The record is a 62-nucleotide RNA from Dulcicalothrix desertica, which matches "Nitrogen stress-induced RNA 1" in Rfam. It is annotated as a small RNA. Rfam 15.1 lists 962 matches to the family in 163 species. The pairing is the family consensus, mapped onto this sequence. The source organism's lineage runs through Bacteria, Nostocales, Calotrichaceae, Dulcicalothrix and Dulcicalothrix desertica.

[Rfam]
RNA sequence: UGGUAGAUGCACCCUGAUAACAACGGCGCCUUUCAUUUUUAUAUUGAUUGGCGCCUUUUUAU
Numbered sequence: 001u002g003g004u005a006g007a008u009g010c011a012c013c014c015u016g017a018u019a020a021c022a023a024c025g026g027c028g029c030c031u032u033u034c035a036u037u038u039u040u041a042u043a044u045u046g047a048u049u050g051g052c053g054c055c056u057u058u059u060u061a062u
Base pairs, nucleotide, nucleotide: 002013003012004011026054027053028052029051030050033047034046035045